[Rfam]
RNA sequence: UAGUAAGGAUGAACAGCUAAAAACACGCCGUGCUGGCGGCAGACUCAAACGCGACGACAAUCGCAACGUCUGCACUAGUACUUCCUGUACGUCGCAACGCUGUUCUGACCUACAUCCUGUAGC
Numbered sequence: 001u002a003g004u005a006a007g008g009a010u011g012a013a014c015a016g017c018u019a020a021a022a023a024c025a026c027g028c029c030g031u032g033c034u035g036g037c038g039g040c041a042g043a044c045u046c047a048a049a050c051g052c053g054a055c056g057a058c059a060a061u062c063g064c065a066a067c068g069u070c071u072g073c074a075c076u077a078g079u080a081c082u083u084c085c086u087g088u089a090c091g092u093c094g095c096a097a098c099g100c101u102g103u104u105c106u107g108a109c110c111u112a113c114a115u116c117c118u119g120u121a122g123c
Stems, first nucleotide, its partner, number of pairs: 011105007026094002029091005110122004
RNA: Bacillaceae-1 RNA